[Rfam]
RNA: SAM (S-adenosyl methionine) riboswitch aptamer
RNA sequence: AGUAACGAGCGCCAGCGCGCGACGACGGGACGUCCCCCGUGCGGUCGCACUGCCCUGACUUGCUGGCCGGCAACCCUCCAUCCGGCGGGGUGCCUCAGGUGACGACUCGGCAAUUCGACCAUCGAUACGCAAGCCAGAAGG
Numbered sequence: 001a002g003u004a005a006c007g008a009g010c011g012c013c014a015g016c017g018c019g020c021g022a023c024g025a026c027g028g029g030a031c032g033u034c035c036c037c038c039g040u041g042c043g044g045u046c047g048c049a050c051u052g053c054c055c056u057g058a059c060u061u062g063c064u065g066g067c068c069g070g071c072a073a074c075c076c077u078c079c080a081u082c083c084g085g086c087g088g089g090g091u092g093c094c095u096c097a098g099g100u101g102a103c104g105a106c107u108c109g110g111c112a113a114u115u116c117g118a119c120c121a122u123c124g125a126u127a128c129g130c131a132a133g134c135c136a137g138a139a140g141g
Base pairs, nucleotide, nucleotide: 001107002106003105009068011067012066013065014064015063016062069094070093071092074090075089076088078085079084110130111129115125116124117123118122